Small nucleolar RNA SNORD19: a 77-nucleotide sequence from Chiloscyllium punctatum. The pairing is the family consensus, mapped onto this sequence. The literature on the family includes a 2001 paper in EMBO J by Huttenhofer et al., "RNomics: an experimental approach that identifies 201 candidates for novel, small, non-messenger RNAs in mouse". Its Rfam clan is "SNORD19 clan". Rfam links the family to the GO terms RNA processing and nucleolus. NCBI's taxonomy places the organism under Eukaryota, Bilateria, Deuterostomia, Craniata, Chiloscyllium. A search with the family's covariance model found it, with a score of 36 bits. By type it is a C/D-box small nucleolar RNA.

RNA sequence: GAGAAAUUAAGAUAAUUUAAAUAGUCAGAAAGUGGAUGCCUGACUGCUAAAGAUCCAACUCUGAUCUCACUGUGAAA
Numbered sequence: 001g002a003g004a005a006a007u008u009a010a011g012a013u014a015a016u017u018u019a020a021a022u023a024g025u026c027a028g029a030a031a032g033u034g035g036a037u038g039c040c041u042g043a044c045u046g047c048u049a050a051a052g053a054u055c056c057a058a059c060u061c062u063g064a065u066c067u068c069a070c071u072g073u074g075a076a077a
Base pairs, nucleotide, nucleotide: 001068002067003066004065